[Rfam]
RNA sequence: ACGAUGUUCCGCUGCAACAAACAUGUAUUGCAAGAGCAUCUG
Numbered sequence: 001a002c003g004a005u006g007u008u009c010c011g012c013u014g015c016a017a018c019a020a021a022c023a024u025g026u027a028u029u030g031c032a033a034g035a036g037c038a039u040c041u042g
Stems, first nucleotide, its partner, number of pairs: 003040007013032005